[Rfam]
RNA sequence: GAACGUUGCAAGUUCCCGAUAGGCUUUGAACAAAAAGUUUGAAGAUUCCUUGUAACCGAAAACUAAUUAGGGGGAAUAGAGAAAAUG
Numbered sequence: 001g002a003a004c005g006u007u008g009c010a011a012g013u014u015c016c017c018g019a020u021a022g023g024c025u026u027u028g029a030a031c032a033a034a035a036a037g038u039u040u041g042a043a044g045a046u047u048c049c050u051u052g053u054a055a056c057c058g059a060a061a062a063c064u065a066a067u068u069a070g071g072g073g074g075a076a077u078a079g080a081g082a083a084a085a086u087g
Stems, first nucleotide, its partner, number of pairs: 013076005021050003025043005056071002

Rfam assigns this 87-nucleotide sequence from Vagococcus zengguangii to the family "SAM-III riboswitch aptamer (SMK box)".
It scores 60 bits against the family's covariance model.
Gene Ontology terms of the family: methionine adenosyltransferase activity and regulation of translational initiation.